[Rfam]
RNA sequence: UCCGGUCCUCGGUAGUGGCUCGCGGAACCCGGCGACCGGCCGGGCUCCGAGGACCUCGAUCGAUGACCGCC
Numbered sequence: 001u002c003c004g005g006u007c008c009u010c011g012g013u014a015g016u017g018g019c020u021c022g023c024g025g026a027a028c029c030c031g032g033c034g035a036c037c038g039g040c041c042g043g044g045c046u047c048c049g050a051g052g053a054c055c056u057c058g059a060u061c062g063a064u065g066a067c068c069g070c071c
Stems, first nucleotide, its partner, number of pairs: 003069005009063005017055002020052002023049004028044006
Dot-bracket structure: ..(((((.(((((...((.((.((((.((((((.....)))))).)))).)).))...))))).)))))..
A member of the RNA family "Actino-pnp RNA" from Actinotalea bogoriensis, 71 nucleotides long. The organism belongs to Actinotalea bogoriensis, within Bacteria. The match comes from Rfam's covariance-model search (53 bits).